Shown here is a 115-nucleotide RNA from Saccharothrix variisporea, a member of the family "SAM (S-adenosyl methionine) riboswitch aptamer". Taxonomically the source falls in Saccharothrix (Bacteria, Bacillati, Actinomycetota, Pseudonocardiaceae). The base pairs follow the family's consensus structure, which is taken from published work. A search with the family's covariance model found it, with a score of 104 bits.

RNA sequence: GGUCAUGAGUGCCAGCGCGAAGCUCGGGCUAGCUGGCCGGCAACCCUCCUACCGCGGUGGGGUGCCCCCGAUGAGGACCUGGCCUGGCGCGGAGGGCGUCGGGCAAGCGCGGGCC
Numbered sequence: 001g002g003u004c005a006u007g008a009g010u011g012c013c014a015g016c017g018c019g020a021a022g023c024u025c026g027g028g029c030u031a032g033c034u035g036g037c038c039g040g041c042a043a044c045c046c047u048c049c050u051a052c053c054g055c056g057g058u059g060g061g062g063u064g065c066c067c068c069c070g071a072u073g074a075g076g077a078c079c080u081g082g083c084c085u086g087g088c089g090c091g092g093a094g095g096g097c098g099u100c101g102g103g104c105a106a107g108c109g110c111g112g113g114c115c
Base pairs, nucleotide, nucleotide: 001079002078003077004076009038011037012036013035014034015033016032021030022029039066040065041064044062045061046060048057049056082104083103084102085101086100087099088098089097090096